The record is a 135-nucleotide RNA sequence from Rhynochetos jubatus, which matches "Small nucleolar RNA SNORA55" in Rfam. Its family is annotated with nucleolus and RNA processing in the Gene Ontology. The match comes from Rfam's covariance-model search (76 bits). Rfam's curators write: ACA55 is a member of the H/ACA class of snoRNA that guide the sites of modification of uridines to pseudouridines. By type it is an H/ACA-box small nucleolar RNA.
RNA sequence: GCAUCUGAAUCUUACCCAGCUCCUUGCGAUACAUUCCGCUGGGCUGGGACGCGGGAUGCAACAGGAAAGCAGAGGGAGUCCAGGCAAGCUCCCUUUCACCCCGGUGGGUCUUGUCUCUACGCCUCUGCAACAUUU
Numbered sequence: 001g002c003a004u005c006u007g008a009a010u011c012u013u014a015c016c017c018a019g020c021u022c023c024u025u026g027c028g029a030u031a032c033a034u035u036c037c038g039c040u041g042g043g044c045u046g047g048g049a050c051g052c053g054g055g056a057u058g059c060a061a062c063a064g065g066a067a068a069g070c071a072g073a074g075g076g077a078g079u080c081c082a083g084g085c086a087a088g089c090u091c092c093c094u095u096u097c098a099c100c101c102c103g104g105u106g107g108g109u110c111u112u113g114u115c116u117c118u119a120c121g122c123c124u125c126u127g128c129a130a131c132a133u134u135u
Stems, first nucleotide, its partner, number of pairs: 001059005013049001015048005022042002069128006082116007096107003